RNA sequence: CUGCAUGUAGAAUUUUUUUGUGCUUCUGACUAAUAGAAGCAUGAAUACAUUCAAAACAUGCUAUAUAAAACAUUGGAGUAUUCAGGGCUGCCAGCCUUUCAGGAAAGGCUGAGUAGUAGUAUAAUUCUCCUACACUU
Dot-bracket structure: ..((((((..........((((((((.........))))))))............)))))).............((((........((..((((((((......))))))).)..)).........)))).......
Rfam assigns this 137-nucleotide RNA from Sarcophilus harrisii to the family "Small nucleolar RNA U109". The family has 26 seed sequences and 1,405 matches in Rfam 15.1. Gene Ontology terms of the family: nucleolus and RNA processing. Pairs were carried over by alignment from the consensus structure, which was predicted with WAR. The match comes from Rfam's covariance-model search (120 bits).